[Rfam]
RNA: Alphaproteobacteria transfer-messenger RNA
Organism: Elioraea sp. Yellowstone
RNA sequence: GGGCUUCCGCAUGACGGCUGCGUUUCCUAUAUUCGGGGCUGCCGGGGCAACCCGGCUAUGGCGAUAAACGGCGCGUGGAAUAAGCGUUGCGGACCCGGGGGCAGUGCCCGGCGCCUCCACCAGCACCGCCUCGGCUGUGGCGGAGUGCGGGGGCGAAACAGGCUCGACGCGCGUGGUAAAGACCCGCCUUUCGCCCGGCAUGGUACCGCCGUCAUCGGGCCGAUCAUAAGUGCCAACGACAACAGCCGUAUGGCGCUCGCUGCCUGACGUAGUCUAGGCAAGCGCGGUCCGGGGGGCACCGGGCAACAGAAGCCCCCCACU
Numbered sequence: 001g002g003g004c005u006u007c008c009g010c011a012u013g014a015c016g017g018c019u020g021c022g023u024u025u026c027c028u029a030u031a032u033u034c035g036g037g038g039c040u041g042c043c044g045g046g047g048c049a050a051c052c053c054g055g056c057u058a059u060g061g062c063g064a065u066a067a068a069c070g071g072c073g074c075g076u077g078g079a080a081u082a083a084g085c086g087u088u089g090c091g092g093a094c095c096c097g098g099g100g101g102c103a104g105u106g107c108c109c110g111g112c113g114c115c116u117c118c119a120c121c122a123g124c125a126c127c128g129c130c131u132c133g134g135c136u137g138u139g140g141c142g143g144a145g146u147g148c149g150g151g152g153g154c155g156a157a158a159c160a161g162g163c164u165c166g167a168c169g170c171g172c173g174u175g176g177u178a179a180a181g182a183c184c185c186g187c188c189u190u191u192c193g194c195c196c197g198g199c200a201u202g203g204u205a206c207c208g209c210c211g212u213c214a215u216c217g218g219g220c221c222g223a224u225c226a227u228a229a230g231u232g233c234c235a236a237c238g239a240c241a242a243c244a245g246c247c248g249u250a251u252g253g254c255g256c257u258c259g260c261u262g263c264c265u266g267a268c269g270u271a272g273u274c275u276a277g278g279c280a281a282g283c284g285c286g287g288u289c290c291g292g293g294g295g296g297c298a299c300c301g302g303g304c305a306a307c308a309g310a311a312g313c314c315c316c317c318c319a320c321u
Base pairs, nucleotide, nucleotide: 041056042055043054044053045052060195061194062193063192064191070188071187072186073185075183076182085173086172087171089170090169091168095111096110097109098108099107112155113154114153115152116151117150118149196211197210198209199208201222202221203220206218207217285301286300287299288298291318292317293316294315295314296313